[Rfam]
RNA sequence: CUUCAACGAGCCCAGCCACAACGGCACCUCCCGGCCCUGCCCGUACGUGGCGAGCACCGCCUGCGCCUC
Numbered sequence: 001c002u003u004c005a006a007c008g009a010g011c012c013c014a015g016c017c018a019c020a021a022c023g024g025c026a027c028c029u030c031c032c033g034g035c036c037c038u039g040c041c042c043g044u045a046c047g048u049g050g051c052g053a054g055c056a057c058c059g060c061c062u063g064c065g066c067c068u069c
Stems, first nucleotide, its partner, number of pairs: 015025003028065001030063001032059002037054002041050003
RNA: ASpks TB sRNA
Organism: Streptomyces lincolnensis